[Rfam]
RNA sequence: GACCAGAUGAGCAUCAGUGGUCCGGUGUGCGGACUUCAAACCCGUAGCUGAAGAAAAUUAGAGUGGUUCGAUUCCAUCUUCUGGGC
Numbered sequence: 001g002a003c004c005a006g007a008u009g010a011g012c013a014u015c016a017g018u019g020g021u022c023c024g025g026u027g028u029g030c031g032g033a034c035u036u037c038a039a040a041c042c043c044g045u046a047g048c049u050g051a052a053g054a055a056a057a058u059u060a061g062a063g064u065g066g067u068u069c070g071a072u073u074c075c076a077u078c079u080u081c082u083g084g085g086c
Stems, first nucleotide, its partner, number of pairs: 001086001003084005009078001012027004017022001028046005048061004063077004
Selenocysteine transfer RNA: an 86-nucleotide sequence from Nephila pilipes. A search with the family's covariance model found it, with a score of 58 bits. NCBI's taxonomy places the organism under Eukaryota, Opisthokonta, Eumetazoa, Ecdysozoa, Nephila.